[Rfam]
RNA sequence: CUUUAGUGAUGAGUUUCCACUUCGGUCCGUGUUUCUGAGAGCAGUGAUUAUACUAGAAGUUCUGAAGGG
Numbered sequence: 001c002u003u004u005a006g007u008g009a010u011g012a013g014u015u016u017c018c019a020c021u022u023c024g025g026u027c028c029g030u031g032u033u034u035c036u037g038a039g040a041g042c043a044g045u046g047a048u049u050a051u052a053c054u055a056g057a058a059g060u061u062c063u064g065a066a067g068g069g
Stems, first nucleotide, its partner, number of pairs: 001069004

About this RNA: The record is a 69-nucleotide RNA from Hucho hucho, which matches "Small nucleolar RNA SNORD18" in Rfam. Pairs were carried over by alignment from the consensus structure, which was predicted with PFOLD. The family is grouped with related families in Rfam's "SNORD18 clan". Gene Ontology terms of the family: RNA processing and nucleolus. It is annotated as a C/D-box small nucleolar RNA.